[Rfam]
RNA sequence: AUGAAGAUAGAGGGAGAGACUGUGCAUGCAGCGCCGAAGGAGCAAGCCUUGUUAUGAGGUGAAUCUCUCAGGCAAAAGUACUUCUAUCCGACG
Numbered sequence: 001a002u003g004a005a006g007a008u009a010g011a012g013g014g015a016g017a018g019a020c021u022g023u024g025c026a027u028g029c030a031g032c033g034c035c036g037a038a039g040g041a042g043c044a045a046g047c048c049u050u051g052u053u054a055u056g057a058g059g060u061g062a063a064u065c066u067c068u069c070a071g072g073c074a075a076a077a078g079u080a081c082u083u084c085u086a087u088c089c090g091a092c093g
Stems, first nucleotide, its partner, number of pairs: 006088008020031004033073003036069002040067003046060004
RNA: Glycine riboswitch aptamer
Organism: Ammoniphilus sp. CFH 90114